[Rfam]
RNA sequence: CUCUGCCUUCAAGUCAGAUGCUGCAGACCUAAUGGGUGUGCAGUCAGUACAGAGGUGUAAAGGAUUCCGUCUCCUUUGCUCUCGCAAAAAAAUGUAAUGGGCAUGAAUGCCGGUAGUAGUAUAAGCGAAUCCCGCAAUGC
Numbered sequence: 001c002u003c004u005g006c007c008u009u010c011a012a013g014u015c016a017g018a019u020g021c022u023g024c025a026g027a028c029c030u031a032a033u034g035g036g037u038g039u040g041c042a043g044u045c046a047g048u049a050c051a052g053a054g055g056u057g058u059a060a061a062g063g064a065u066u067c068c069g070u071c072u073c074c075u076u077u078g079c080u081c082u083c084g085c086a087a088a089a090a091a092a093u094g095u096a097a098u099g100g101g102c103a104u105g106a107a108u109g110c111c112g113g114u115a116g117u118a119g120u121a122u123a124a125g126c127g128a129a130u131c132c133c134g135c136a137a138u139g140c
Stems, first nucleotide, its partner, number of pairs: 003057001005056005013050002020044006027037002077086003105140001107138001108136003112132002119126002